[Rfam]
RNA sequence: ACCUGCAUUCGCAAGGGGUUGAGGUCUCACCCAUGGCUCGGUCAUUGAUAGUGCAGGCAGAGGAGCUCCAAAAGCCUUUCCCGUGUUUGGUGGGUUCGAUCCCGUCCCUCCCAAACCCUUCGGGCA
Numbered sequence: 001a002c003c004u005g006c007a008u009u010c011g012c013a014a015g016g017g018g019u020u021g022a023g024g025u026c027u028c029a030c031c032c033a034u035g036g037c038u039c040g041g042u043c044a045u046u047g048a049u050a051g052u053g054c055a056g057g058c059a060g061a062g063g064a065g066c067u068c069c070a071a072a073a074g075c076c077u078u079u080c081c082c083g084u085g086u087u088u089g090g091u092g093g094g095u096u097c098g099a100u101c102c103c104g105u106c107c108c109u110c111c112c113a114a115a116c117c118c119u120u121c122g123g124g125c126a
Stems, first nucleotide, its partner, number of pairs: 002057008014046002017043005023038004074125003085116005090110001092108003
Source information: A member of the RNA family "Small nucleolar RNA SNORA71" from Fregata magnificens, 126 nucleotides long. Pairs were carried over by alignment from the consensus structure, which was predicted with PFOLD. Gene Ontology terms of the family: RNA processing and nucleolus. The source organism's lineage runs through Eukaryota, Metazoa, Sauropsida, Dinosauria and Fregata. From the family's description: The members of this family belong to the H/ACA class of snoRNAs which bind a number of proteins (including dyskerin, Gar1p and Nop10p) to form snoRNP complexes. On this family, see Ganot et al., Genes Dev 1997: "The family of box ACA small nucleolar RNAs is defined by an evolutionarily conserved secondary structure and ubiquitous sequence elements essential for RNA accumulation". The family's RNA type in Rfam is H/ACA-box small nucleolar RNA.